[Rfam]
RNA sequence: GCCCCGAAAGCACAAACCCACACACGUGCCGGCACGAUGACCUGGGUGCCCGCAGCUCAAGCUGCUGGUUGGUCAUUGGGGUACGUGGAGGCCUAAC
Numbered sequence: 001g002c003c004c005c006g007a008a009a010g011c012a013c014a015a016a017c018c019c020a021c022a023c024a025c026g027u028g029c030c031g032g033c034a035c036g037a038u039g040a041c042c043u044g045g046g047u048g049c050c051c052g053c054a055g056c057u058c059a060a061g062c063u064g065c066u067g068g069u070u071g072g073u074c075a076u077u078g079g080g081g082u083a084c085g086u087g088g089a090g091g092c093c094u095a096a097c
Base pairs, nucleotide, nucleotide: 023087024086025085026084027083028082029081030080035078036077037076038075039074040073041072042071048069049068050067052065